The record is a 292-nucleotide RNA from Mollisiaceae sp. DMI_Dod_QoI, which matches "Group I catalytic intron" in Rfam. From the family's description: Group I catalytic introns are large self-splicing ribozymes. Taxonomically the source falls in Mollisiaceae (Eukaryota, saccharomyceta, Leotiomycetes, Helotiales). Rfam links the family to the GO term Group I intron splicing.

RNA sequence: AUCGAACCAUUGGGACACUACUAGGUGGUUAAGAGAAAUGUGAAUCUAGUCCGCGGUGCGGGCGACACUCUCAAAUUGCGGGGACGUCCUGCUACUUCGCAGCUACCGCAGCCGUACCGAAAGGGCGGCGCGCACCGGUCCGUUACGGGGCCGGGGAUGGUAAUAACGCUGGCGAUAGGGAUGAUCCGCAGCCAAGUCCUACGGGCGGUACGCCUACGGACGCAGUUCACAGACUAGAUGUGAGUGGGCUCCUCGAGCUUAAGUUAUAGUCGACCCCCCGCGAGAGCGGGUG
Numbered sequence: 001a002u003c004g005a006a007c008c009a010u011u012g013g014g015a016c017a018c019u020a021c022u023a024g025g026u027g028g029u030u031a032a033g034a035g036a037a038a039u040g041u042g043a044a045u046c047u048a049g050u051c052c053g054c055g056g057u058g059c060g061g062g063c064g065a066c067a068c069u070c071u072c073a074a075a076u077u078g079c080g081g082g083g084a085c086g087u088c089c090u091g092c093u094a095c096u097u098c099g100c101a102g103c104u105a106c107c108g109c110a111g112c113c114g115u116a117c118c119g120a121a122a123g124g125g126c127g128g129c130g131c132g133c134a135c136c137g138g139u140c141c142g143u144u145a146c147g148g149g150g151c152c153g154g155g156g157a158u159g160g161u162a163a164u165a166a167c168g169c170u171g172g173c174g175a176u177a178g179g180g181a182u183g184a185u186c187c188g189c190a191g192c193c194a195a196g197u198c199c200u201a202c203g204g205g206c207g208g209u210a211c212g213c214c215u216a217c218g219g220a221c222g223c224a225g226u227u228c229a230c231a232g233a234c235u236a237g238a239u240g241u242g243a244g245u246g247g248g249c250u251c252c253u254c255g256a257g258c259u260u261a262a263g264u265u266a267u268a269g270u271c272g273a274c275c276c277c278c279c280g281c282g283a284g285a286g287c288g289g290g291u292g
Base pairs, nucleotide, nucleotide: 013019066246067245068244069243070242072240073239077190078189079188080187081186082185087181088180089179090178191226192225196221197220198219199218204214205213206212207211230272232271233270234269235268236267248258249257250256251255277290278289279288280287281286